RNA sequence: UCGGUCCCGGUUCACGCGCGGCUGCCUGCCGCCGACCCGGUGCC
Numbered sequence: 001u002c003g004g005u006c007c008c009g010g011u012u013c014a015c016g017c018g019c020g021g022c023u024g025c026c027u028g029c030c031g032c033c034g035a036c037c038c039g040g041u042g043c044c
Base pairs, nucleotide, nucleotide: 003044004043005042007040008039009038010037015034016033018032019031020030021029022028
Description:
A member of the RNA family "L31-Actinobacteria ribosomal protein leader" from Streptomyces sp. TLI_235, 44 nucleotides long. The family's consensus secondary structure is taken from published work. The literature on the family includes a 2020 paper in BMC Microbiol by Eckert and Weinberg, "Discovery of 20 novel ribosomal leader candidates in bacteria and archaea". It is annotated as a cis-regulatory leader. Lineage of the source: Bacteria > Bacillati > Actinomycetota > Actinomycetes > Streptomyces.